A member of the RNA family "Eukaryotic small subunit ribosomal RNA" from Brettanomyces nanus, 165 nucleotides of a longer RNA.
A reference for the family is Yusupov et al. (2001), "Crystal structure of the ribosome at 5.5 A resolution", Science.
The family is grouped with related families in Rfam's "SSU clan".
Its family is annotated with ribosome and structural constituent of ribosome in the Gene Ontology.
A search with the family's covariance model found it, with a score of 1799 bits.
[Rfam]
RNA sequence: CCGCCCGUCGCUAGUACCGAUUGAAUGGCUUAGUGAGGCCUCAAGAUUGGACCUUUGAGGGGGGCAACCCUUUCGGGGGACCGAGAAUUUGGACAAACUUGGUCAUUUAGAGGAACUAAAAGUCGUAACAAGGUUUCCGUAGGUGAACCUGCGGAAGGAUCAUUA
Numbered sequence: 001c002c003g004c005c006c007g008u009c010g011c012u013a014g015u016a017c018c019g020a021u022u023g024a025a026u027g028g029c030u031u032a033g034u035g036a037g038g039c040c041u042c043a044a045g046a047u048u049g050g051a052c053c054u055u056u057g058a059g060g061g062g063g064g065c066a067a068c069c070c071u072u073u074c075g076g077g078g079g080a081c082c083g084a085g086a087a088u089u090u091g092g093a094c095a096a097a098c099u100u101g102g103u104c105a106u107u108u109a110g111a112g113g114a115a116c117u118a119a120a121a122g123u124c125g126u127a128a129c130a131a132g133g134u135u136u137c138c139g140u141a142g143g144u145g146a147a148c149c150u151g152c153g154g155a156a157g158g159a160u161c162a163u164u165a
Stems, first nucleotide, its partner, number of pairs: 001132001003129001006125002009122001012118004017113002021109001023108008032099003037094001039092002043088001047084004052079006058072004134157010